[Rfam]
RNA sequence: CCCGGGGCUGACGCCCCGGGCUUUUUUCGCGCCUCCCUCCGGGAGG
Numbered sequence: 001c002c003c004g005g006g007g008c009u010g011a012c013g014c015c016c017c018g019g020g021c022u023u024u025u026u027u028c029g030c031g032c033c034u035c036c037c038u039c040c041g042g043g044a045g046g
Base pairs, nucleotide, nucleotide: 001020002019003018004017005016006015007014008013033045034044035043036042037041
Dot-bracket structure: ((((((((....))))))))............(((((...))))).

The family of this 46-nucleotide RNA from Occallatibacter riparius is "Acido-Lenti-1 RNA". The family's consensus secondary structure is taken from published work. It scores 39 bits against the family's covariance model.